[Rfam]
RNA sequence: GUUAGGGAGUGCCACUAGUCGAUGAUUAGUGGUAUCCCCUUAUAUAUUUAUUUAAUUUACAUGGAGGAAUUUAAUAAUG
Numbered sequence: 001g002u003u004a005g006g007g008a009g010u011g012c013c014a015c016u017a018g019u020c021g022a023u024g025a026u027u028a029g030u031g032g033u034a035u036c037c038c039c040u041u042a043u044a045u046a047u048u049u050a051u052u053u054a055a056u057u058u059a060c061a062u063g064g065a066g067g068a069a070u071u072u073a074a075u076a077a078u079g
Base pairs, nucleotide, nucleotide: 004040005039006038007037009036010034011033012032013031014030015029016028017027
Dot-bracket structure: ...((((.(((((((((.........)))))))).))))).......................................
The record is a 79-nucleotide sequence from Eubacterium sp. CAG:156, which matches "caiA RNA" in Rfam. By type it is a small RNA. Taxonomically the source falls in Eubacterium (Bacteria, Clostridia, Eubacteriales, Eubacteriaceae).